[Rfam]
RNA sequence: GGUGAAAAUGAUGACUUCUUGGGUACUGAUUUAUAUGAUCUGAAAAUGCCAUCCAUUUCCUGAUUCACC
Numbered sequence: 001g002g003u004g005a006a007a008a009u010g011a012u013g014a015c016u017u018c019u020u021g022g023g024u025a026c027u028g029a030u031u032u033a034u035a036u037g038a039u040c041u042g043a044a045a046a047u048g049c050c051a052u053c054c055a056u057u058u059c060c061u062g063a064u065u066c067a068c069c
Base pairs, nucleotide, nucleotide: 001069002068003067004066005065006064

The family of this 69-nucleotide sequence from Chloebia gouldiae is "Small nucleolar RNA SNORD123". Gene Ontology terms of the family: RNA processing and nucleolus. The literature on the family includes a 2006 paper in Nucleic Acids Res by Yang et al., "snoSeeker: an advanced computational package for screening of guide and orphan snoRNA genes in the human genome". Pairs were carried over by alignment from the consensus structure, which was predicted with WAR. By type it is a C/D-box small nucleolar RNA. It scores 86 bits against the family's covariance model.